[Rfam]
RNA: Antisense RNA which regulates isiA expression
Organism: Chlorogloeopsis fritschii
RNA sequence: GAUCGCCUAUGAUCGCAGGAUCGAGUGUAGGAUUAGUAACCAAACGAACUUCAUGAAUUGUGGCAUCAUAAAGUCCACCAAAAUACAUGGCUUUAGCUACUAAAAGCAAUGCACCUAACCCUAAAAAAAUUAGGUGAUUCCCUAAGAUAAAACCUAAUUUCUUUGAGUCAUCCCA
Numbered sequence: 001g002a003u004c005g006c007c008u009a010u011g012a013u014c015g016c017a018g019g020a021u022c023g024a025g026u027g028u029a030g031g032a033u034u035a036g037u038a039a040c041c042a043a044a045c046g047a048a049c050u051u052c053a054u055g056a057a058u059u060g061u062g063g064c065a066u067c068a069u070a071a072a073g074u075c076c077a078c079c080a081a082a083a084u085a086c087a088u089g090g091c092u093u094u095a096g097c098u099a100c101u102a103a104a105a106g107c108a109a110u111g112c113a114c115c116u117a118a119c120c121c122u123a124a125a126a127a128a129a130u131u132a133g134g135u136g137a138u139u140c141c142c143u144a145a146g147a148u149a150a151a152a153c154c155u156a157a158u159u160u161c162u163u164u165g166a167g168u169c170a171u172c173c174c175a
Stems, first nucleotide, its partner, number of pairs: 133172006142165001144163002